Overview:
Rfam assigns this 246-nucleotide RNA sequence from Lentibacillus amyloliquefaciens to the family "BsrG". About the family: bsrE, bsrG and bsrH pair through intermolecular interactions with antisense sRNAs. They form type I toxin/antitoxin system that includes an mRNA encoding for a short, toxic peptide (bsrE, bsrG and bsrH) and an antitoxin that is comprised of an antisense RNA. bsrG encodes a 39-amino-acid toxin, and the 180 nucleotide antisense sRNA called SR4 acts as the antitoxin (they overlap by 123 nucleotides). SR4 interaction with the 3'UTR of bsrG RNA promotes bsrG degradation and inhibits its translation. BsrG interferes with cell envelope biosynthesis, causes membrane invaginations and delocalisation of the cell wall synthesis and initiates autolysis. bsrE RNA encodes 30 amino-acid toxin peptide. The match comes from Rfam's covariance-model search (61 bits). Rfam 15.1 lists 614 matches to the family in 343 species. By type it is a small RNA. For this family Rfam cites "Novel small RNA-encoding genes in the intergenic regions of Bacillus subtilis" (Saito et al., Gene, 2008).
RNA sequence: UGUAAUAAGGCUUUCAUGGGUGGUGGCUCACUCCCUUUUUCAGAAGGGGGGUGAUGCUGGUGACAGUUUACGAGUCGUUAAUCUUAAUGGUUGCGUUCGCAACGUUAGUUGUUGCAAUUCUGUCAGAAAAGAAGUAACCACCCUGACAGCCUGACAAGCAUUUAGGGUGGUUAUCUCUCCUUAAUGUGAGUCGCCCCCUUGAAGGGCUGUUGCACAUAGGGCCGUUUGGUGUAAGAGCACCAAACG
Numbered sequence: 001u002g003u004a005a006u007a008a009g010g011c012u013u014u015c016a017u018g019g020g021u022g023g024u025g026g027c028u029c030a031c032u033c034c035c036u037u038u039u040u041c042a043g044a045a046g047g048g049g050g051g052u053g054a055u056g057c058u059g060g061u062g063a064c065a066g067u068u069u070a071c072g073a074g075u076c077g078u079u080a081a082u083c084u085u086a087a088u089g090g091u092u093g094c095g096u097u098c099g100c101a102a103c104g105u106u107a108g109u110u111g112u113u114g115c116a117a118u119u120c121u122g123u124c125a126g127a128a129a130a131g132a133a134g135u136a137a138c139c140a141c142c143c144u145g146a147c148a149g150c151c152u153g154a155c156a157a158g159c160a161u162u163u164a165g166g167g168u169g170g171u172u173a174u175c176u177c178u179c180c181u182u183a184a185u186g187u188g189a190g191u192c193g194c195c196c197c198c199u200u201g202a203a204g205g206g207c208u209g210u211u212g213c214a215c216a217u218a219g220g221g222c223c224g225u226u227u228g229g230u231g232u233a234a235g236a237g238c239a240c241c242a243a244a245c246g
Base pairs, nucleotide, nucleotide: 001214002213004211005210006209007208009192010191011190012189013188018151020147022142023141024140028054029053030052032051033050034049035048036047037046038045062124063123064122065121066120075090076089077088099115100114101113164178165177166176195206196205197204223246224245225244226243227242228241229240230239231238232237